[Rfam]
RNA sequence: UAAAAAGAUAGAGGAGCAAAUGAUAAGAGUAAAAUUAUUUUAGUUUGACAAACGGAGAAUAAUUUGAAAGGAGAUUUUGCCGAAAUAAAAAUGAAAGUCAAAACAUUUUUAUUGGUAAAUUAGAUAAUAUCUAUUUUACUGUCAUUGAAAUUUCAAUGGAGGGCUAUCAAGUAA
Numbered sequence: 001u002a003a004a005a006a007g008a009u010a011g012a013g014g015a016g017c018a019a020a021u022g023a024u025a026a027g028a029g030u031a032a033a034a035u036u037a038u039u040u041u042a043g044u045u046u047g048a049c050a051a052a053c054g055g056a057g058a059a060u061a062a063u064u065u066g067a068a069a070g071g072a073g074a075u076u077u078u079g080c081c082g083a084a085a086u087a088a089a090a091a092u093g094a095a096a097g098u099c100a101a102a103a104c105a106u107u108u109u110u111a112u113u114g115g116u117a118a119a120u121u122a123g124a125u126a127a128u129a130u131c132u133a134u135u136u137u138a139c140u141g142u143c144a145u146u147g148a149a150a151u152u153u154c155a156a157u158g159g160a161g162g163g164c165u166a167u168c169a170a171g172u173a174a
Stems, first nucleotide, its partner, number of pairs: 007168005016080005024072001032065007084113010114140006121133004142159007